[Rfam]
RNA sequence: UGGAUGCGCCUGUCGGGAAGGGUGAGAACCUUUGAUUAAGGUUCGAGUCGAGCGAAAGCGAGACAACGUCGCCGAAGGUGACGGCCCGAAGGGUGAGGAGCGAAGCGACGAAUAAUCCUUCCCCCACCACCA
Numbered sequence: 001u002g003g004a005u006g007c008g009c010c011u012g013u014c015g016g017g018a019a020g021g022g023u024g025a026g027a028a029c030c031u032u033u034g035a036u037u038a039a040g041g042u043u044c045g046a047g048u049c050g051a052g053c054g055a056a057a058g059c060g061a062g063a064c065a066a067c068g069u070c071g072c073c074g075a076a077g078g079u080g081a082c083g084g085c086c087c088g089a090a091g092g093g094u095g096a097g098g099a100g101c102g103a104a105g106c107g108a109c110g111a112a113u114a115a116u117c118c119u120u121c122c123c124c125c126a127c128c129a130c131c132a
Stems, first nucleotide, its partner, number of pairs: 015123007023115001033095002036093002042090004049060002067083006
RNA: RtT RNA